[Rfam]
RNA sequence: UUCGCUCCACACAGAUCAAAUAAUCUGAGCAUGUGGCCAUCCGAUAUAGGAUGUAACACCCGUAGUUAUGGUGCUUAGUUAGCAAGGUAACUACAAAUGGUGU
Numbered sequence: 001u002u003c004g005c006u007c008c009a010c011a012c013a014g015a016u017c018a019a020a021u022a023a024u025c026u027g028a029g030c031a032u033g034u035g036g037c038c039a040u041c042c043g044a045u046a047u048a049g050g051a052u053g054u055a056a057c058a059c060c061c062g063u064a065g066u067u068a069u070g071g072u073g074c075u076u077a078g079u080u081a082g083c084a085a086g087g088u089a090a091c092u093a094c095a096a097a098u099g100g101u102g103u
Stems, first nucleotide, its partner, number of pairs: 012027005038053005056103005062094008072084004

This 103-nucleotide RNA sequence belongs to the Rfam family "COG3943 RNA".
By type it is a small RNA.
The base pairs follow the family's consensus structure, which is taken from published work.
The sequence is in the family's curated seed alignment.